[Rfam]
RNA: Alphaproteobacterial ar14
Nucleotides: 122
Base pairs, nucleotide, nucleotide: 007039008038009037010036011035012034013033014032015031016030044074045073046072047071048070049069050068051067086117087116088115089114090113091112092111093110094109095108096107
Number, partner (000 for none) and nucleotide at each position: 001000g002000g003000a004000a005000u006000u007039c008038c009037g010036u011035c012034a013033g014032g015031g016030u017000u018000a019000u020000c021000c022000u023000c024000c025000u026000c027000c028000c029000a030016a031015u032014c033013c034012u035011g036010a037009c038008g039007g040000a041000u042000a043000c044074g045073a046072c047071c048070g049069g050068c051067u052000c053000c054000u055000c056000c057000u058000c059000c060000u061000c062000c063000c064000a065000a066000a067051a068050g069049c070048c071047g072046g073045u074044c075000a076000c077000c078000c079000u080000a081000a082000a083000a084000c085000g086117a087116c088115a089114c090113c091112c092111g093110c094109c095108g096107a097000a098000c099000c100000u101000c102000c103000u104000c105000c106000c107096u108095c109094g110093g111092c112091g113090g114089g115088u116087g117086u118000u119000g120000u121000u122000u